[Rfam]
Shown here is an 80-nucleotide RNA from Muraenolepis orangiensis, a member of the family "mir-203 microRNA precursor family". A search with the family's covariance model found it, with a score of 66 bits. Taxonomically the source falls in Muraenolepis (Eukaryota, Vertebrata, Osteoglossocephalai, Zeiogadaria).

RNA sequence: GUCUGAUUGGUUAAGUGGUCCUAAACAUUUCACAAUUUUGGAAAUGAACUGUUGAACUGUUAAGAACCACUUAAUCAACA
Number, nucleotide and partner (000 for none) at each position: 001g000002u000003c000004u000005g000006a000007u000008u000009g000010g000011u000012u000013a000014a071015g070016u069017g068018g067019u066020c000021c064022u063023a000024a061025a060026c059027a058028u000029u056030u055031c054032a053033c000034a000035a000036u000037u000038u000039u000040g000041g000042a000043a000044a000045u000046g000047a000048a000049c000050u000051g000052u000053u032054g031055a030056a029057c000058u027059g026060u025061u024062a000063a022064g021065a000066a019067c018068c017069a016070c015071u014072u000073a000074a000075u000076c000077a000078a000079c000080a000